RNA sequence: CGGUGCUUGCAUCACCUGACACCAUGUGACCGGAUGGAGAGGAUCCGGUCAUUUGUGGGGUAAACCCACGGAUGGGCCCCCGCUCCGUCGUCGGAGGU
Numbered sequence: 001c002g003g004u005g006c007u008u009g010c011a012u013c014a015c016c017u018g019a020c021a022c023c024a025u026g027u028g029a030c031c032g033g034a035u036g037g038a039g040a041g042g043a044u045c046c047g048g049u050c051a052u053u054u055g056u057g058g059g060g061u062a063a064a065c066c067c068a069c070g071g072a073u074g075g076g077c078c079c080c081c082g083c084u085c086c087g088u089c090g091u092c093g094g095a096g097g098u
Base pairs, nucleotide, nucleotide: 026052027051028050031047032046033045034044035043057086058085059084060083061082065076066075067074068073
Shown here is a 98-nucleotide sequence from Streptomyces finlayi, a member of the family "NLPC-P60 RNA". A search with the family's covariance model found it, with a score of 67 bits. Lineage of the source: Bacteria > Bacillati > Actinomycetota > Kitasatosporales > Streptomyces. The base pairs follow the family's consensus structure, which is taken from published work.